[Rfam]
RNA sequence: UAGUUGGGGCGAGUGAGUGGCGGUGCGCGUGGUAGUGGCCGAGUGCGUGGGCGGUUCCUGGAUGGGUGUAUGUGCGUAGUAGGUGUGUGUAUGUUAUCUGUAUGUUAGGGUUGUGUGAAUGAGCCCCUCUGCGCCGCUGUCUUUCCAUUCUCUUACACGUUGAUCUUAUUUGAUCGGGCCGGGAUGUCCGCCGCCUGCCCGGCCUGAAAUGAGAACACCCUCUUCCUGCGAAGCCCUCGGGGGGCGCUGUGCAGGGAAGCAGGUUUACCGAGCAGGCGGUAACGCAUAGUCGGAGAUGAUGAAUUGAUCAGAUAGAUGAGGCUGGGGGCUGGGUGACCCCCUUCCCCCGGCCAGUGCGUAUCGAGGCGAUUCUGAUCCGA
Number, nucleotide and partner (000 for none) at each position: 001u000002a000003g000004u000005u000006g000007g000008g000009g000010c000011g000012a000013g000014u000015g000016a000017g000018u000019g000020g000021c000022g000023g000024u000025g000026c000027g000028c000029g000030u000031g000032g000033u000034a000035g137036u136037g135038g134039c133040c053041g052042a000043g000044u049045g000046c000047g000048u000049g044050g000051g000052c041053g040054g000055u000056u000057c000058c000059u000060g000061g000062a000063u000064g000065g000066g000067u000068g000069u000070a084071u000072g000073u081074g080075c079076g000077u000078a000079g075080u074081a073082g000083g000084u070085g124086u123087g000088u000089g000090u117091a116092u115093g114094u113095u000096a111097u110098c000099u000100g000101u000102a000103u000104g000105u000106u000107a000108g000109g000110g097111u096112u000113g094114u093115g092116u091117g090118a000119a000120u000121g000122a000123g086124c085125c000126c000127c000128u000129c000130u000131g000132c000133g039134c038135c037136g036137c035138u000139g000140u000141c000142u000143u000144u000145c000146c000147a000148u000149u000150c000151u000152c000153u000154u000155a000156c000157a000158c000159g000160u000161u000162g000163a000164u000165c000166u000167u000168a000169u215170u214171u213172g000173a000174u207175c206176g205177g204178g000179c202180c201181g200182g000183g199184a000185u000186g198187u197188c000189c000190g194191c000192c000193g000194c190195c000196u000197g187198c186199c183200c181201g180202g179203c000204c177205u176206g175207a174208a000209a000210u000211g000212a000213g171214a170215a169216c000217a000218c000219c000220c000221u000222c000223u000224u000225c000226c000227u000228g000229c000230g000231a000232a000233g000234c000235c000236c000237u271238c270239g269240g268241g000242g266243g265244g264245c000246g000247c262248u261249g000250u000251g260252c259253a000254g000255g000256g000257a000258a000259g252260c251261a248262g247263g000264u244265u243266u242267a000268c240269c239270g238271a237272g000273c000274a000275g000276g000277c000278g000279g000280u000281a000282a000283c000284g000285c000286a000287u000288a000289g000290u000291c379292g378293g377294a376295g000296a000297u000298g000299a000300u000301g372302a371303a370304u369305u368306g367307a000308u000309c000310a000311g000312a000313u000314a000315g000316a000317u000318g000319a000320g352321g351322c350323u349324g000325g347326g346327g345328g344329c000330u000331g000332g000333g000334u000335g000336a000337c000338c000339c000340c000341c000342u000343u000344c328345c327346c326347c325348c000349g323350g322351c321352c320353a000354g000355u000356g000357c000358g000359u000360a000361u000362c000363g000364a000365g000366g000367c306368g305369a304370u303371u302372c301373u000374g000375a000376u294377c293378c292379g291380a000
RNA: Small Cajal body-specific RNA 2
Organism: Pogona vitticeps